[Rfam]
RNA sequence: CCUGGGACUCGCAUCCCAGGCUGUUGCUUGGCGUCGCGUUGCGACU
Numbered sequence: 001c002c003u004g005g006g007a008c009u010c011g012c013a014u015c016c017c018a019g020g021c022u023g024u025u026g027c028u029u030g031g032c033g034u035c036g037c038g039u040u041g042c043g044a045c046u
Stems, first nucleotide, its partner, number of pairs: 001020007033045005
The family of this 46-nucleotide RNA sequence from Rosistilla oblonga is "Acido-Lenti-1 RNA". The match comes from Rfam's covariance-model search (37 bits). Lineage of the source: Bacteria > Pseudomonadati > Planctomycetota > Pirellulaceae > Rosistilla.